A member of the RNA family "Fluoride riboswitch aptamer (crcB RNA motif)" from Clostridium botulinum, 59 nucleotides long. On this family, see Baker et al., Science 2012: "Widespread genetic switches and toxicity resistance proteins for fluoride".
[Rfam]
RNA sequence: UUAAAUAUAGGCGAUGGAGUUCGCCAUAAUUGCGUAAUGCUAAUGACUCCUACAAAUAA
Numbered sequence: 001u002u003a004a005a006u007a008u009a010g011g012c013g014a015u016g017g018a019g020u021u022c023g024c025c026a027u028a029a030u031u032g033c034g035u036a037a038u039g040c041u042a043a044u045g046a047c048u049c050c051u052a053c054a055a056a057u058a059a
Base pairs, nucleotide, nucleotide: 010025011024012023013022016050017049018048019047020046021045032040033039
Lineage of the source: Bacteria > Bacillati > Bacillota > Clostridiaceae > Clostridium botulinum A. The match comes from Rfam's covariance-model search (54 bits). Rfam links the family to the GO terms positive regulation of gene expression and response to fluoride. The family's consensus secondary structure is taken from published work.